[Rfam]
Nucleotides: 064
Base pairs, nucleotide, nucleotide: 001064002063003062004061005060006059007058008057009056010055011054012053013052014051015050016049017048018047019046020045021044022043023042024041025040026039027038030037031036
Number, partner (000 for none) and nucleotide at each position: 001064g002063g003062c004061c005060u006059c007058c008057c009056u010055c011054u012053g013052u014051g015050g016049g017048g018047u019046g020045a021044u022043c023042g024041a025040u026039c027038u028000c029000a030037g031036g032000g033000c034000c035000c036031c037030c038027a039026g040025a041024u042023u043022g044021a045020u046019c047018g048017c049016c050015c051014u052013a053012c054011a055010g056009a057008g058007g059006g060005a061004g062003g063002c064001c

The record is a 64-nucleotide sequence from Cnephaeus nilssonii, which matches "mir-9242 microRNA precursor family" in Rfam. The source organism's lineage runs through Eukaryota, Craniata, Tetrapoda, Theria and Cnephaeus. Pairs were carried over by alignment from the consensus structure, which was predicted with RNAalifold. Rfam 15.1 lists 940 matches to the family in 18 species. It scores 73 bits against the family's covariance model.